RNA sequence: GGUUGCAAGUUUGAAACCAUAGCAGAAGUGUUCAUGGUGUAGGCUCUCAGAUUCCAAUGGAUCUGCAAAUUCUGUU
Numbered sequence: 001g002g003u004u005g006c007a008a009g010u011u012u013g014a015a016a017c018c019a020u021a022g023c024a025g026a027a028g029u030g031u032u033c034a035u036g037g038u039g040u041a042g043g044c045u046c047u048c049a050g051a052u053u054c055c056a057a058u059g060g061a062u063c064u065g066c067a068a069a070u071u072c073u074g075u076u
Stems, first nucleotide, its partner, number of pairs: 013044001017042001021076007028040003048065007
RNA: Mammalian CPEB3 ribozyme
Organism: Crocodylus porosus